[Rfam]
RNA sequence: CCCCCCGAUACUACCCGCAGGUAGACCUCGAUGGAGAUUCUCGGCGAGGUAGAGCGACCGAUUGGUUGGUAAGCAGUCGAAAGGCUGCGCCGACUUGUCAAACUCCGAACUUGUCGAGAUCGUAGAAGUCGGGUGCUAGGGGGCAGGGAUAAGCUUUGCUUCCGUGAUGGGAACAACCAAGACGAGGGUUAAGGUCCCUAAGUUCUAGUUAAGUGCACUAAAUAGGUUUGUGGCCAAAGACAGUGGGGAGGUAGGCUCAGAAGCAGCCAUCCUUCAAAGAGUGCGUAACAGCUCACUCACCGAGGUCACAUGCCUAGAAGAUGGAAGGGGCUAAAACUAGACACCGAGACCUUCGAGCACCGAAAGGUGAUCUGGUAGGGGGGCGUGCCAUGUGGAUAGAAGUCUCCCCGAGAGGAGGGAUGGACCGCAUGGUAUCGCGGAU
Numbered sequence: 001c002c003c004c005c006c007g008a009u010a011c012u013a014c015c016c017g018c019a020g021g022u023a024g025a026c027c028u029c030g031a032u033g034g035a036g037a038u039u040c041u042c043g044g045c046g047a048g049g050u051a052g053a054g055c056g057a058c059c060g061a062u063u064g065g066u067u068g069g070u071a072a073g074c075a076g077u078c079g080a081a082a083g084g085c086u087g088c089g090c091c092g093a094c095u096u097g098u099c100a101a102a103c104u105c106c107g108a109a110c111u112u113g114u115c116g117a118g119a120u121c122g123u124a125g126a127a128g129u130c131g132g133g134u135g136c137u138a139g140g141g142g143g144c145a146g147g148g149a150u151a152a153g154c155u156u157u158g159c160u161u162c163c164g165u166g167a168u169g170g171g172a173a174c175a176a177c178c179a180a181g182a183c184g185a186g187g188g189u190u191a192a193g194g195u196c197c198c199u200a201a202g203u204u205c206u207a208g209u210u211a212a213g214u215g216c217a218c219u220a221a222a223u224a225g226g227u228u229u230g231u232g233g234c235c236a237a238a239g240a241c242a243g244u245g246g247g248g249a250g251g252u253a254g255g256c257u258c259a260g261a262a263g264c265a266g267c268c269a270u271c272c273u274u275c276a277a278a279g280a281g282u283g284c285g286u287a288a289c290a291g292c293u294c295a296c297u298c299a300c301c302g303a304g305g306u307c308a309c310a311u312g313c314c315u316a317g318a319a320g321a322u323g324g325a326a327g328g329g330g331c332u333a334a335a336a337c338u339a340g341a342c343a344c345c346g347a348g349a350c351c352u353u354c355g356a357g358c359a360c361c362g363a364a365a366g367g368u369g370a371u372c373u374g375g376u377a378g379g380g381g382g383g384c385g386u387g388c389c390a391u392g393u394g395g396a397u398a399g400a401a402g403u404c405u406c407c408c409c410g411a412g413a414g415g416a417g418g419g420a421u422g423g424a425c426c427g428c429a430u431g432g433u434a435u436c437g438c439g440g441a442u
Stems, first nucleotide, its partner, number of pairs: 001383006011024005026135001027133006036121003040118008052106001053104002060099003064095006073088006139163009168179003183355007193345003202342001204341006223316005229310007243300005249273003254268003274278001279294001283292002356373002358369004384437001386434010402421005408415002